[Rfam]
RNA sequence: AGCCUCAUUUUAGCUGAGAAUGGACACUGUUGAUCAUAGUGUCCAAAAAUUGUUAAUAUGGCUAAAUUGAGACACAGGUUAUGCUUCCAUCACAGUGAAUGUAUUGCAGGGGUGACAAUAAGGCCUGUGACCUUU
Numbered sequence: 001a002g003c004c005u006c007a008u009u010u011u012a013g014c015u016g017a018g019a020a021u022g023g024a025c026a027c028u029g030u031u032g033a034u035c036a037u038a039g040u041g042u043c044c045a046a047a048a049a050u051u052g053u054u055a056a057u058a059u060g061g062c063u064a065a066a067u068u069g070a071g072a073c074a075c076a077g078g079u080u081a082u083g084c085u086u087c088c089a090u091c092a093c094a095g096u097g098a099a100u101g102u103a104u105u106g107c108a109g110g111g112g113u114g115a116c117a118a119u120a121a122g123g124c125c126u127g128u129g130a131c132c133u134u135u
Stems, first nucleotide, its partner, number of pairs: 002062003007057002021045007074128005088114004093109001
A member of the RNA family "Small nucleolar RNA SNORA1" from Otolemur garnettii, 135 nucleotides long.
The family's RNA type in Rfam is H/ACA-box small nucleolar RNA.
The family has 29 seed sequences and 1,282 matches in Rfam 15.1.
ACA1 is a member of the H/ACA class of snoRNA that guide the sites of modification of uridines to pseudouridines.
Pairs were carried over by alignment from the consensus structure, which was predicted with PFOLD.